[Rfam]
Shown here is a 78-nucleotide sequence from Phaseolus vulgaris, a member of the family "small nucleolar RNA snoR117".
The match comes from Rfam's covariance-model search (63 bits).
Gene Ontology terms of the family: RNA processing and nucleolus.
RNA sequence: GGCCGGUGAUGCAUGAUGAAUUUGUCCGUACCAUCCGAGAUUUUCUCUGACGAAUGCUCAUUCUUGAAUCUGAGGCCU
Numbered sequence: 001g002g003c004c005g006g007u008g009a010u011g012c013a014u015g016a017u018g019a020a021u022u023u024g025u026c027c028g029u030a031c032c033a034u035c036c037g038a039g040a041u042u043u044u045c046u047c048u049g050a051c052g053a054a055u056g057c058u059c060a061u062u063c064u065u066g067a068a069u070c071u072g073a074g075g076c077c078u
Stems, first nucleotide, its partner, number of pairs: 001077004